A member of the RNA family "Selenocysteine insertion sequence 1" from Turnix velox, 65 nucleotides long. Lineage of the source: Eukaryota > Archosauria > Dinosauria > Neoaves > Turnix. From the family's description: The incorporation of selenocysteine into a protein sequence is directed by an in-frame UGA codon (usually a stop codon) within the coding region of the mRNA. Selenoprotein mRNAs contain a conserved secondary structure in the 3' UTR that is required for the distinction of UGA stop from UGA selenocysteine. The selenocysteine insertion sequence (SECIS) is around 60 nt in length and adopts a hairpin structure which is sufficiently well-defined and conserved to act as a computational screen for selenoprotein genes. A search with the family's covariance model found it, with a score of 40 bits.
[Rfam]
RNA sequence: GUGUGCUUAUGAAGAUCACCAGCCAAAGAGUAAUUCACUCAGUUGGUGUUCUGAUGCCCUCACAC
Numbered sequence: 001g002u003g004u005g006c007u008u009a010u011g012a013a014g015a016u017c018a019c020c021a022g023c024c025a026a027a028g029a030g031u032a033a034u035u036c037a038c039u040c041a042g043u044u045g046g047u048g049u050u051c052u053g054a055u056g057c058c059c060u061c062a063c064a065c
Stems, first nucleotide, its partner, number of pairs: 001065005014051002017048007029039003